RNA sequence: UCCCGCUUUUCCUCCCUGAGCGGGGCUUUGAUGCUUCACCGCAAAAAGGCUUAUUCGCCCGGCUGGACUUUGUGCCGCUGGGCGUUUUUUU
Numbered sequence: 001u002c003c004c005g006c007u008u009u010u011c012c013u014c015c016c017u018g019a020g021c022g023g024g025g026c027u028u029u030g031a032u033g034c035u036u037c038a039c040c041g042c043a044a045a046a047a048g049g050c051u052u053a054u055u056c057g058c059c060c061g062g063c064u065g066g067a068c069u070u071u072g073u074g075c076c077g078c079u080g081g082g083c084g085u086u087u088u089u090u091u
Stems, first nucleotide, its partner, number of pairs: 002024006026048004032043003056084008
RNA: Burkholderia RNA 7 (anti-hemB)
Organism: Polaromonas sp. OV174